[Rfam]
A member of the RNA family "small nucleolar RNA snoR114" from Salix brachista, 88 nucleotides long. It scores 76 bits against the family's covariance model. Lineage of the source: Eukaryota > Magnoliopsida > Gunneridae > Malpighiales > Salix. Gene Ontology terms of the family: nucleolus and RNA processing. On this family, see Chen and Wu, Nucleic Acids Res 2009: "Mining small RNA sequencing data: a new approach to identify small nucleolar RNAs in Arabidopsis". Rfam 15.1 lists 1,645 matches to the family in 183 species.
RNA sequence: AAGCUGUGAUGAAAUGUGUGCUCGCUGUGAUGCUAGGGUCUAUCACUACCGUCAGAAUCAUCAGACGACAAUGAGUACAUUUGAGCUU
Number, nucleotide and partner (000 for none) at each position: 001a088002a087003g086004c085005u000006g000007u000008g000009a000010u000011g000012a000013a000014a000015u000016g000017u000018g000019u000020g000021c000022u000023c000024g000025c000026u000027g000028u000029g000030a000031u000032g000033c000034u000035a000036g000037g000038g000039u000040c000041u000042a000043u000044c000045a000046c000047u000048a000049c000050c000051g000052u000053c000054a000055g000056a000057a000058u000059c000060a000061u000062c000063a000064g000065a000066c000067g000068a000069c000070a000071a000072u000073g000074a000075g000076u000077a000078c000079a000080u000081u000082u000083g000084a000085g004086c003087u002088u001